The family of this 142-nucleotide RNA sequence from Paenibacillus phyllosphaerae is "Group II catalytic intron D1-D4-4".
The literature on the family includes a 2001 paper in EMBO J by Chu et al., "Control of branch-site choice by a group II intron".
The organism belongs to Paenibacillus, within Bacteria.
RNA sequence: UAGCCGGUGAAAGUCCGGCCAUGGGAGGGGCCAAACCUCAAAGUAGCUAGGAUACCUGCGUACGGUGAGAGCUUUGCGCAGAAGCGCAUCGACAAAAGCUCUGUCGGAGACAGGGCGAGCAACAUAUCAGGCGGUAACAUGA
Numbered sequence: 001u002a003g004c005c006g007g008u009g010a011a012a013g014u015c016c017g018g019c020c021a022u023g024g025g026a027g028g029g030g031c032c033a034a035a036c037c038u039c040a041a042a043g044u045a046g047c048u049a050g051g052a053u054a055c056c057u058g059c060g061u062a063c064g065g066u067g068a069g070a071g072c073u074u075u076g077c078g079c080a081g082a083a084g085c086g087c088a089u090c091g092a093c094a095a096a097a098g099c100u101c102u103g104u105c106g107g108a109g110a111c112a113g114g115g116c117g118a119g120c121a122a123c124a125u126a127u128c129a130g131g132c133g134g135u136a137a138c139a140u141g142a
Stems, first nucleotide, its partner, number of pairs: 020043001022041001024039001051090003055086001056081006065072002098116002101113004119135002